Shown here is an 87-nucleotide sequence from Solanum tuberosum, a member of the family "MIR8024 microRNA precursor family". A search with the family's covariance model found it, with a score of 58 bits. Taxonomically the source falls in Solanum (Eukaryota, Streptophyta, eudicotyledons, Solanales).

RNA sequence: UUGCAUAAUUUGAAGACUUCAACUUGCAAACUUCAAGGACUUGAACACUUCAACUUGCAUACUUGGCUAAAUUUAAAGGCUUCAAGC
Numbered sequence: 001u002u003g004c005a006u007a008a009u010u011u012g013a014a015g016a017c018u019u020c021a022a023c024u025u026g027c028a029a030a031c032u033u034c035a036a037g038g039a040c041u042u043g044a045a046c047a048c049u050u051c052a053a054c055u056u057g058c059a060u061a062c063u064u065g066g067c068u069a070a071a072u073u074u075a076a077a078g079g080c081u082u083c084a085a086g087c
Stems, first nucleotide, its partner, number of pairs: 001085003005081001009077006019066003025059004032053002035050003